A member of the RNA family "Bacterial small signal recognition particle RNA" from Alphaproteobacteria bacterium PA3, 99 nucleotides long.
Rfam classes the family as a non-coding RNA gene.
The family's consensus secondary structure is taken from published work.
For this family Rfam cites "Temperature-responsive in vitro RNA structurome of Yersinia pseudotuberculosis" (Righetti et al., Proc Natl Acad Sci U S A, 2016).
Taxonomically the source falls in Alphaproteobacteria (Bacteria, Pseudomonadati, Pseudomonadota).
RNA sequence: UGGAGAUCGGCGGUGGACAUAGUCCUCGCCAAUUCGGUCAGGUCCGGAAGGAAGCAGCCGCAACGAGUUUCGCUAUGGGUCGCCGUUCGGUCUCCACCC
Numbered sequence: 001u002g003g004a005g006a007u008c009g010g011c012g013g014u015g016g017a018c019a020u021a022g023u024c025c026u027c028g029c030c031a032a033u034u035c036g037g038u039c040a041g042g043u044c045c046g047g048a049a050g051g052a053a054g055c056a057g058c059c060g061c062a063a064c065g066a067g068u069u070u071c072g073c074u075a076u077g078g079g080u081c082g083c084c085g086u087u088c089g090g091u092c093u094c095c096a097c098c099c
Stems, first nucleotide, its partner, number of pairs: 004093005010086006018077006025067004035060004043052003